[Rfam]
RNA sequence: GCAAGGCGUGUGAGAAACACGCCCACCGUAAACCUAAGGUUUCCUACGCAAGGUUAAUCCGCGUAGGGUUAGUCGGACCUAAGCCGAGGCCGAAAGGCGUAGAGCGAUGGACAGCAGGUUAUUAUUCCUGCACCACCGUUGUGGAGGUAAAGGGGGGACACAGGAGGAUAGAUCAGGCAUGCCCAUUGGACAUGGCGUGUCGCUAAACCCUAGACGUUUCAGGAUAGGCAAAUCCGUCCUGGAGUUAAGUUGAAGUUUGGUGGAAGGUGCGGAGAGAUCCAAGCCAAUCUGGUUGAGUCCAAGCUGUCGAGAAAAGCCUCGUUACUGUUGAAGCAAUGGUGCCCGUACCGCAAACCGACACUGGUAGGUGGGGGUAAAUGUCCCAAGGUGAU
Numbered sequence: 001g002c003a004a005g006g007c008g009u010g011u012g013a014g015a016a017a018c019a020c021g022c023c024c025a026c027c028g029u030a031a032a033c034c035u036a037a038g039g040u041u042u043c044c045u046a047c048g049c050a051a052g053g054u055u056a057a058u059c060c061g062c063g064u065a066g067g068g069u070u071a072g073u074c075g076g077a078c079c080u081a082a083g084c085c086g087a088g089g090c091c092g093a094a095a096g097g098c099g100u101a102g103a104g105c106g107a108u109g110g111a112c113a114g115c116a117g118g119u120u121a122u123u124a125u126u127c128c129u130g131c132a133c134c135a136c137c138g139u140u141g142u143g144g145a146g147g148u149a150a151a152g153g154g155g156g157g158a159c160a161c162a163g164g165a166g167g168a169u170a171g172a173u174c175a176g177g178c179a180u181g182c183c184c185a186u187u188g189g190a191c192a193u194g195g196c197g198u199g200u201c202g203c204u205a206a207a208c209c210c211u212a213g214a215c216g217u218u219u220c221a222g223g224a225u226a227g228g229c230a231a232a233u234c235c236g237u238c239c240u241g242g243a244g245u246u247a248a249g250u251u252g253a254a255g256u257u258u259g260g261u262g263g264a265a266g267g268u269g270c271g272g273a274g275a276g277a278u279c280c281a282a283g284c285c286a287a288u289c290u291g292g293u294u295g296a297g298u299c300c301a302a303g304c305u306g307u308c309g310a311g312a313a314a315a316g317c318c319u320c321g322u323u324a325c326u327g328u329u330g331a332a333g334c335a336a337u338g339g340u341g342c343c344c345g346u347a348c349c350g351c352a353a354a355c356c357g358a359c360a361c362u363g364g365u366a367g368g369u370g371g372g373g374g375u376a377a378a379u380g381u382c383c384c385a386a387g388g389u390g391a392u
Stems, first nucleotide, its partner, number of pairs: 005023006024390004032369004038349002043067006052060002074345003078110002083105002085102001087100001089098003114131005134341009147325002152320004160307004166300003171294005178199006200264002204259004211252003219242007227235002266285002271280003355364002371384004
RNA: Bacterial large subunit ribosomal RNA, nucleotides 1340 to 1731